[Rfam]
Nucleotides: 151
Stems, first nucleotide, its partner, number of pairs: 028058002031055002034046003114136010
Number, partner (000 for none) and nucleotide at each position: 001000u002000a003000a004000a005000a006000a007000c008000g009000a010000a011000u012000a013000u014000u015000u016000c017000u018000a019000c020000c021000g022000u023000a024000g025000a026000c027000a028058g029057c030000a031055g032054g033000u034046g035045u036044c037000c038000g039000u040000u041000a042000u043000g044036g045035a046034c047000u048000u049000a050000a051000u052000a053000u054032c055031c056000c057029g058028c059000c060000g061000a062000g063000g064000u065000g066000u067000u068000a069000u070000g071000a072000u073000a074000c075000a076000u077000u078000u079000u080000c081000u082000u083000u084000g085000c086000u087000u088000g089000a090000a091000c092000c093000c094000a095000a096000a097000g098000g099000a100000a101000a102000c103000g104000a105000a106000a107000c108000g109000a110000u111000c112000a113000u114136g115135c116134c117133u118132u119131c120130g121129u122128a123127g124000a125000g126000u127123c128122u129121g130120c131119g132118a133117a134116g135115g136114c137000u138000u139000u140000u141000c142000u143000a144000u145000u146000u147000g148000u149000u150000g151000a